[Rfam]
RNA sequence: AACUUCGGAGAAAAAAUCCGCACAUAUAUCGUCACAUUACUCUGGGUGCUUGAAGGUUUAUUUAAUUACCUAAUAAGUGGAGAAUGCGGAUAUAUGGAGGCCUAAC
Numbered sequence: 001a002a003c004u005u006c007g008g009a010g011a012a013a014a015a016a017u018c019c020g021c022a023c024a025u026a027u028a029u030c031g032u033c034a035c036a037u038u039a040c041u042c043u044g045g046g047u048g049c050u051u052g053a054a055g056g057u058u059u060a061u062u063u064a065a066u067u068a069c070c071u072a073a074u075a076a077g078u079g080g081a082g083a084a085u086g087c088g089g090a091u092a093u094a095u096g097g098a099g100g101c102c103u104a105a106c
Stems, first nucleotide, its partner, number of pairs: 023096008035086004040082004048078005
Rfam assigns this 106-nucleotide sequence from Acinetobacter qingfengensis to the family "t44 RNA". Pairs were carried over by alignment from the consensus structure, which was predicted with LocARNA. Lineage of the source: Bacteria > Pseudomonadati > Gammaproteobacteria > Moraxellales > Acinetobacter. From the family's description: This family consists of a number of bacterial RNA genes of between 135 and 170 bases in length. Rfam classes the family as a small RNA.